mir-16 microRNA precursor family: a 73-nucleotide sequence from Chelonoidis abingdonii. It scores 37 bits against the family's covariance model. The source organism's lineage runs through Eukaryota, Bilateria, Testudinoidea, Testudinidae and Chelonoidis nigra species complex.
RNA sequence: UGAAGGCAGCAGCACAGAAGUAAGGGUGGCGUGGUCUGAUAUUGCUACCCUUACUUCUGUGCUGCUGCUGGCA
Numbered sequence: 001u002g003a004a005g006g007c008a009g010c011a012g013c014a015c016a017g018a019a020g021u022a023a024g025g026g027u028g029g030c031g032u033g034g035u036c037u038g039a040u041a042u043u044g045c046u047a048c049c050c051u052u053a054c055u056u057c058u059g060u061g062c063u064g065c066u067g068c069u070g071g072c073a
Stems, first nucleotide, its partner, number of pairs: 005072001007070001008066008017056001019055008
Dot-bracket structure: ....(.(((((((((.(.((((((((.....................)))))))))..))))))))...).).